[Rfam]
This 122-nucleotide RNA belongs to the Rfam family "LOOT RNA". Pairs were carried over by alignment from the consensus structure, which is taken from published work.
RNA sequence: CACCUAACCCCGAAAGUUUUUCUUUUGGAUAUGGUGUGGAAACCCUUGGAAGACACUGAACCCCGCGUUCAGCGACUCUUCCAAGGGUCAUAUCGGGAAACUGAUAUGGGACCGCAAGGUCU
Numbered sequence: 001c002a003c004c005u006a007a008c009c010c011c012g013a014a015a016g017u018u019u020u021u022c023u024u025u026u027g028g029a030u031a032u033g034g035u036g037u038g039g040a041a042a043c044c045c046u047u048g049g050a051a052g053a054c055a056c057u058g059a060a061c062c063c064c065g066c067g068u069u070c071a072g073c074g075a076c077u078c079u080u081c082c083a084a085g086g087g088u089c090a091u092a093u094c095g096g097g098a099a100a101c102u103g104a105u106a107u108g109g110g111a112c113c114g115c116a117a118g119g120u121c122u
Base pairs, nucleotide, nucleotide: 001036002035003034004033010028011027012026013025014024015023043087044086045085046084047083048082049081050080051079052078053077054074056072057071058070059069060068061067089108090107091106092105093104094103095102096101109122110121111120112119113118
Rfam's curators put it in the seed alignment.